[Rfam]
RNA: Bacterial large subunit ribosomal RNA, nucleotides 1677 to 2015
Organism: Pedobacter sp. PACM 27299
Nucleotides: 339
Stems, first nucleotide, its partner, number of pairs: 001339004009334008018325003035059005044049001060077007078082001090318007097310002101115003119152007126143001130139003156305004161235003166232002168228005175223003181217002186212005193204002236254006255259001265292001275291006
Number, partner (000 for none) and nucleotide at each position: 001339c002338g003337a004336g005000u006000g007000a008000a009334u010333c011332a012331u013330g014329g015328c016327u017000a018325a019324g020323g021000a022000a023000c024000u025000c026000g027000g028000c029000a030000a031000a032000a033000u034000g035059g036058c037057c038056c039055u040000g041000u042000a043000a044049c045000u046000u047000c048000g049044g050000g051000a052000g053000a054000a055039g056038g057037g058036g059035c060077g061076c062075u063074g064073g065072u066071a067000g068000c069000a070000a071066u072065a073064u074063c075062a076061g077060c078082c079000g080000c081000a082078g083000u084000g085000a086000a087000a088000a089000g090318g091317c092316c093315c094314a095313g096312g097310c098309g099000a100000c101115u102114g103113u104000u105000u106000a107000a108000c109000a110000a111000a112000a113103a114102c115101a116000c117000a118000u119152g120151g121150c122149u123148u124147u125146g126143c127000a128000a129000a130139a131138u132137c133000g134000a135000a136000a137132g138131a139130u140000g141000a142000a143126g144000u145000a146125u147124a148123a149122g150121g151120c152119c153000u154000g155000a156305c157304a158303c159302c160000u161235g162234c163233c164000c165000g166232g167231u168228g169227c170226u171225g172224g173000a174000a175223g176222g177221u178000u179000a180000a181217g182216a183000g184000g185000g186212g187211a188210u189209g190208u191000c192000a193204u194203c195000u196000g197000u198000u199000a200000a201000a202000g203194g204193a205000g206000a207000a208190g209189c210188a211187u212186u213000g214000a215000a216182u217181c218000g219000a220000a221177g222176c223175c224172c225171c226170a227169g228168u229000a230000a231167a232166c233163g234162g235161c236254g237253g238252c239251c240250g241249u242000a243000a244000c245000u246000a247000u248000a249241a250240c251239g252238g253237u254236c255259c256000u257000a258000a259255g260000g261000u262000a263000g264000c265292g266000a267000a268000a269000u270000u271000c272000c273000u274000u275291g276290u277289c278288g279287g280286g281000u282000a283000a284000g285000u286280u287279c288278c289277g290276a291275c292265c293000u294000g295000c296000a297000c298000g299000a300000a301000u302159g303158g304157u305156g306000u307000a308000a309098c310097g311000a312096u313095c314094u315093g316092g317091g318090c319000g320000c321000u322000g323020u324019c325018u326000c327016a328015g329014c330013c331012a332011u333010g334009a335000g336004c337003u338002c339001g